The record is an 82-nucleotide RNA from Vallitalea guaymasensis, which matches "ZMP/ZTP riboswitch aptamer (pfl RNA motif)" in Rfam. The source organism's lineage runs through Bacteria, Bacillati, Clostridia, Lachnospirales and Vallitalea.
RNA sequence: UUUCUUCUGUAUGACUGGCGGAAGUGGGAGUACCCACAGGGAGUACAGAAUUAUAAUUAUGCCGACCGCCUGGGCAAUAGAC
Number, nucleotide and partner (000 for none) at each position: 001u000002u000003u000004c000005u050006u049007c048008u047009g046010u045011a044012u043013g000014a000015c040016u039017g070018g069019c068020g067021g066022a000023a000024g037025u036026g035027g034028g000029a000030g000031u000032a000033c000034c027035c026036a025037c024038a000039g016040g015041g000042a000043g012044u011045a010046c009047a008048g007049a006050a005051u000052u000053a000054u000055a000056a000057u000058u000059a000060u076061g075062c074063c073064g000065a000066c021067c020068g019069c018070c017071u000072g000073g063074g062075c061076a060077a000078u000079a000080g000081a000082c000